Background: Rfam assigns this 96-nucleotide RNA from Chitinophagaceae bacterium BSSC1 to the family "SAM-I/IV (S-adenosyl methionine) riboswitch aptamer". Clan: SAM clan. The organism belongs to Chitinophagaceae, within Bacteria.

RNA sequence: CCCUAUCAUCAAGAACCCUUGAGUGGGUACCAACCGAGAGCAACAACUCCGCGGUGGUAAAAUGAUGAGGACUUACAGUCAAAAUAAAAUGUAAUC
Numbered sequence: 001c002c003c004u005a006u007c008a009u010c011a012a013g014a015a016c017c018c019u020u021g022a023g024u025g026g027g028u029a030c031c032a033a034c035c036g037a038g039a040g041c042a043a044c045a046a047c048u049c050c051g052c053g054g055u056g057g058u059a060a061a062a063u064g065a066u067g068a069g070g071a072c073u074u075a076c077a078g079u080c081a082a083a084a085u086a087a088a089a090u091g092u093a094a095u096c
Stems, first nucleotide, its partner, number of pairs: 006068005015028004029058003034054003038049002042092001070080004